The family of this 88-nucleotide sequence from Dethiobacter alkaliphilus is "c-di-GMP-I riboswitch aptamer". About the family: GEMM was predicted in a large-scale screen for bacterial structured RNA regulatory elements. It scores 81 bits against the family's covariance model. The family's consensus secondary structure is taken from published work.
[Rfam]
RNA sequence: ACUGGAUAAUGGCAAACCUGUUGAAAAGCAGGGACGCAAAGCUAAGGGUCUACGGCACAUUUUGUGUCAUGACAGCCUGGUUAUCGAA
Numbered sequence: 001a002c003u004g005g006a007u008a009a010u011g012g013c014a015a016a017c018c019u020g021u022u023g024a025a026a027a028g029c030a031g032g033g034a035c036g037c038a039a040a041g042c043u044a045a046g047g048g049u050c051u052a053c054g055g056c057a058c059a060u061u062u063u064g065u066g067u068c069a070u071g072a073c074a075g076c077c078u079g080g081u082u083a084u085c086g087a088a
Stems, first nucleotide, its partner, number of pairs: 012037002017032006040082004045078003048073003055067004
Dot-bracket structure: ...........((...((((((....))))))...))..((((.((((((....((((.....))))...)))..)))))))......